[Rfam]
RNA sequence: GGGGACCUUCGGGGCCCUAUAACCUGGGUCGCUUGCGAUCCAUCUAGCUGACGGAAGACAGAGA
Numbered sequence: 001g002g003g004g005a006c007c008u009u010c011g012g013g014g015c016c017c018u019a020u021a022a023c024c025u026g027g028g029u030c031g032c033u034u035g036c037g038a039u040c041c042a043u044c045u046a047g048c049u050g051a052c053g054g055a056a057g058a059c060a061g062a063g064a
Stems, first nucleotide, its partner, number of pairs: 001018004006014003026041006
RNA: L2-Alphaproteobacteria ribosomal protein leader
Organism: Fuscibacter oryzae